[Rfam]
Shown here is a 56-nucleotide RNA sequence from Nakamurella aerolata, a member of the family "F6 TB sRNA". The family's RNA type in Rfam is small RNA.
RNA sequence: CCAAUGACCCCGGACCGCUGCCGGACCCCGACCUGGUAGCGAUCCGGGGUCAUUCC
Numbered sequence: 001c002c003a004a005u006g007a008c009c010c011c012g013g014a015c016c017g018c019u020g021c022c023g024g025a026c027c028c029c030g031a032c033c034u035g036g037u038a039g040c041g042a043u044c045c046g047g048g049g050u051c052a053u054u055c056c
Base pairs, nucleotide, nucleotide: 003054004053005052007050008049009048010047011046012045013044014043016041017040018039019038020037021036022035